[Rfam]
This 263-nucleotide RNA sequence from Medicago truncatula belongs to the Rfam family "MIR2655 microRNA precursor family". The family's consensus secondary structure was predicted with RNAalifold.
RNA sequence: CCCAUAAGUAAUAAAAAUUAUGUUUAGGUCCCUUAACUUUAUUUAAAGCAUCAGUUUGAUCCUUUAUGUCAAUUUAAUUCAAAAGAACGUUAAAUUUUGGUCUCUUAACUUAUUUUAAUAGUAUUAGUUUUGUCCCUUAUUUUAUUUAAUUAGUAUUAGUUUAGUCCCUAAACUUAACGCUUUUUUGAAUUAAAUUAACAGAACCAAACUGAUAAUUUAAAUAAAGUUAAGGGACCUAAAUGGACCUUUUAUUAUUUAUGGGA
Numbered sequence: 001c002c003c004a005u006a007a008g009u010a011a012u013a014a015a016a017a018u019u020a021u022g023u024u025u026a027g028g029u030c031c032c033u034u035a036a037c038u039u040u041a042u043u044u045a046a047a048g049c050a051u052c053a054g055u056u057u058g059a060u061c062c063u064u065u066a067u068g069u070c071a072a073u074u075u076a077a078u079u080c081a082a083a084a085g086a087a088c089g090u091u092a093a094a095u096u097u098u099g100g101u102c103u104c105u106u107a108a109c110u111u112a113u114u115u116u117a118a119u120a121g122u123a124u125u126a127g128u129u130u131u132g133u134c135c136c137u138u139a140u141u142u143u144a145u146u147u148a149a150u151u152a153g154u155a156u157u158a159g160u161u162u163a164g165u166c167c168c169u170a171a172a173c174u175u176a177a178c179g180c181u182u183u184u185u186u187g188a189a190u191u192a193a194a195u196u197a198a199c200a201g202a203a204c205c206a207a208a209c210u211g212a213u214a215a216u217u218u219a220a221a222u223a224a225a226g227u228u229a230a231g232g233g234a235c236c237u238a239a240a241u242g243g244a245c246c247u248u249u250u251a252u253u254a255u256u257u258a259u260g261g262g263a
Stems, first nucleotide, its partner, number of pairs: 002261007023240003027236003031232013045218003